[Rfam]
Nucleotides: 117
Stems, first nucleotide, its partner, number of pairs: 006112001008110006020050004052097003055093002059091003065084008
Number, partner (000 for none) and nucleotide at each position: 001000g002000g003000a004000c005000g006112a007000a008110c009109c010108c011107u012106u013105g014000g015000a016000g017000a018000g019000a020050u021049c022048c023047a024000a025000c026000g027000c028000a029000u030000u031000u032000u033000a034000u035000c036000g037000u038000a039000a040000u041000g042000c043000g044000a045000a046000a047023u048022g049021g050020a051000c052097g053096c054095c055093g056092a057000a058000g059091g060090c061089g062000c063000a064000a065084a066083a067082a068081a069080u070079g071078a072077u073000a074000u075000u076000u077072a078071u079070c080069a081068u082067u083066u084065u085000c086000a087000a088000a089061c090060g091059c092056u093055c094000a095054g096053g097052c098000a099000a100000a101000a102000g103000g104000a105013c106012a107011g108010g109009g110008g111000a112006u113000g114000a115000a116000a117000a